[Rfam]
RNA sequence: AUCACUUCUCAGCCUUUUCGACUAAAAGAAAAAUGUAGUAUUUGUUCUUGUUGGUUUGAAAGCUGAUACUGGUUCCAUUGAAGUCAGACUCUGUCAAGCGAAUUUUUGGAUAUCAGCCGUAAUCAUCCGAAUUCACUCAAUCCUGUACCACAGAUAGUUUCGACACAGCAGUACAUUCGAGUUCAGUCCACUCUUG
Numbered sequence: 001a002u003c004a005c006u007u008c009u010c011a012g013c014c015u016u017u018u019c020g021a022c023u024a025a026a027a028g029a030a031a032a033a034u035g036u037a038g039u040a041u042u043u044g045u046u047c048u049u050g051u052u053g054g055u056u057u058g059a060a061a062g063c064u065g066a067u068a069c070u071g072g073u074u075c076c077a078u079u080g081a082a083g084u085c086a087g088a089c090u091c092u093g094u095c096a097a098g099c100g101a102a103u104u105u106u107u108g109g110a111u112a113u114c115a116g117c118c119g120u121a122a123u124c125a126u127c128c129g130a131a132u133u134c135a136c137u138c139a140a141u142c143c144u145g146u147a148c149c150a151c152a153g154a155u156a157g158u159u160u161c162g163a164c165a166c167a168g169c170a171g172u173a174c175a176u177u178c179g180a181g182u183u184c185a186g187u188c189c190a191c192u193c194u195u196g
Stems, first nucleotide, its partner, number of pairs: 007027001009025001011023002014020001049068006070086005076080001116149001119146003129138002153188003157184001159181005